[Rfam]
The record is a 76-nucleotide RNA sequence from Callithrix jacchus, which matches "mir-320 microRNA precursor family" in Rfam. NCBI's taxonomy places the organism under Eukaryota, Vertebrata, Platyrrhini, Callitrichinae, Callithrix.

RNA sequence: CUUCCAUGGGGCCUUCCCUUCCUAAUUUUUCCCAGAGUUGGGAGAAGCCGGGUUGAAAGGGUGAAAAGAAAAAACA
Number, nucleotide and partner (000 for none) at each position: 001c000002u000003u000004c000005c000006a000007u000008g000009g000010g000011g000012c000013c000014u059015u058016c000017c000018c055019u000020u000021c052022c051023u050024a000025a000026u000027u000028u000029u044030u043031c042032c041033c040034a039035g000036a000037g000038u000039u034040g033041g032042g031043a030044g029045a000046a000047g000048c000049c000050g023051g022052g021053u000054u000055g018056a000057a000058a015059g014060g000061g000062u000063g000064a000065a000066a000067a000068g000069a000070a000071a000072a000073a000074a000075c000076a000